[Rfam]
RNA sequence: CGUUUUCUGCGGUGCGCGCCAGCGCACUCUAACAUUUGCCUUGUUCCUAAAUACGGCCCCGGGUCGGCCUCACAUCGAUUGUUGUGCAUGUCCGCUGCGUGCGGAAAGCCUCGAGAUCAUGUUCGCCCUCCCACCUGAUCCAGUCUGGAUCAAGGUCGUUUGGUGAGCAGCGGCACCGUGGUUUACGC
Numbered sequence: 001c002g003u004u005u006u007c008u009g010c011g012g013u014g015c016g017c018g019c020c021a022g023c024g025c026a027c028u029c030u031a032a033c034a035u036u037u038g039c040c041u042u043g044u045u046c047c048u049a050a051a052u053a054c055g056g057c058c059c060c061g062g063g064u065c066g067g068c069c070u071c072a073c074a075u076c077g078a079u080u081g082u083u084g085u086g087c088a089u090g091u092c093c094g095c096u097g098c099g100u101g102c103g104g105a106a107a108g109c110c111u112c113g114a115g116a117u118c119a120u121g122u123u124c125g126c127c128c129u130c131c132c133a134c135c136u137g138a139u140c141c142a143g144u145c146u147g148g149a150u151c152a153a154g155g156u157c158g159u160u161u162g163g164u165g166a167g168c169a170g171c172g173g174c175a176c177c178g179u180g181g182u183u184u185a186c187g188c
Stems, first nucleotide, its partner, number of pairs: 002186002007181009017172003038156003042152002045149003061132003066127003072122001077118004086109002091105005
RNA: 6S / SsrS RNA